[Rfam]
RNA sequence: GAGCAAGGACGAAUGCAUAUGUGCUUCUGACACCUCUUAUGUUAGCGGCCAUUUCCGGGUCGCAAUGAUUCCAAAAAUAGAGACUGAGCUC
Numbered sequence: 001g002a003g004c005a006a007g008g009a010c011g012a013a014u015g016c017a018u019a020u021g022u023g024c025u026u027c028u029g030a031c032a033c034c035u036c037u038u039a040u041g042u043u044a045g046c047g048g049c050c051a052u053u054u055c056c057g058g059g060u061c062g063c064a065a066u067g068a069u070u071c072c073a074a075a076a077a078u079a080g081a082g083a084c085u086g087a088g089c090u091c
Stems, first nucleotide, its partner, number of pairs: 001091004

Small nucleolar RNA sn2903: a 91-nucleotide RNA from Teladorsagia circumcincta.
Its Rfam clan is "SNORD60 clan".
The family's RNA type in Rfam is C/D-box small nucleolar RNA.
Taxonomically the source falls in Teladorsagia (Eukaryota, Ecdysozoa, Rhabditida, Strongyloidea).
A search with the family's covariance model found it, with a score of 58 bits.
Gene Ontology terms of the family: RNA processing and nucleolus.